[Rfam]
RNA sequence: UCAAAGAUACUUCCGUCCAGUCACAGCACACGCAAUGAGGGCGGCAGGCAGGGAACCUAGCUGGGGUGAGAAGCCCAUGA
Numbered sequence: 001u002c003a004a005a006g007a008u009a010c011u012u013c014c015g016u017c018c019a020g021u022c023a024c025a026g027c028a029c030a031c032g033c034a035a036u037g038a039g040g041g042c043g044g045c046a047g048g049c050a051g052g053g054a055a056c057c058u059a060g061c062u063g064g065g066g067u068g069a070g071a072a073g074c075c076c077a078u079g080a
Stems, first nucleotide, its partner, number of pairs: 012077001013044006045063003050058002064076003
Shown here is an 80-nucleotide RNA, a member of the family "pemK RNA".
By type it is a cis-regulatory element.